serC leader: a 53-nucleotide sequence from Methylopila sp. Yamaguchi. Taxonomically the source falls in Methylopila (Bacteria, Pseudomonadati, Pseudomonadota, Methylopilaceae). Gene Ontology term of the family: regulation of gene expression. Pairs were carried over by alignment from the consensus structure. This family is a putative regulatory RNA structure that is found upstream of the serC-serA operon in some alpha-proteobacteria. The final stem of the structure overlaps the ribosome binding site of the serC reading frame. On this family, see Corbino et al., Genome Biol 2005: "Evidence for a second class of S-adenosylmethionine riboswitches and other regulatory RNA motifs in alpha-proteobacteria".
[Rfam]
RNA sequence: CGGCGGGCCACCCCUCCCCAACGAGGGGCUGACCAUCUGGAAGGAUGGACCAU
Numbered sequence: 001c002g003g004c005g006g007g008c009c010a011c012c013c014c015u016c017c018c019c020a021a022c023g024a025g026g027g028g029c030u031g032a033c034c035a036u037c038u039g040g041a042a043g044g045a046u047g048g049a050c051c052a053u
Stems, first nucleotide, its partner, number of pairs: 011028006033048006